Rfam assigns this 77-nucleotide RNA sequence from Neogobius melanostomus to the family "Small nucleolar RNA SNORD66". Gene Ontology terms of the family: RNA processing and nucleolus. Lineage of the source: Eukaryota > Teleostei > Eurypterygia > Gobioidei > Neogobius. snoRNA HBII-142 is part of the C/D family of snoRNAs. It is the human orthologue of the mouse MBII-142 snoRNA and is predicted to guide 2'O-ribose methylation of small 18S rRNA at residue C1272. By type it is a C/D-box small nucleolar RNA. The base pairs follow the family's consensus structure, which was predicted with RNAalifold.

Nucleotides: 077
Stems, first nucleotide, its partner, number of pairs: 001077004
Number, partner (000 for none) and nucleotide at each position: 001077c002076u003075u004074c005000a006000g007000u008000g009000a010000u011000g012000a013000u014000u015000u016000c017000u018000g019000u020000u021000u022000u023000g024000u025000g026000c027000c028000a029000c030000g031000u032000g033000u034000c035000u036000g037000g038000g039000c040000c041000a042000c043000u044000g045000a046000u047000u048000a049000u050000c051000u052000a053000u054000g055000a056000u057000g058000g059000a060000a061000u062000a063000g064000a065000g066000g067000a068000u069000c070000u071000g072000a073000a074004g075003a076002a077001g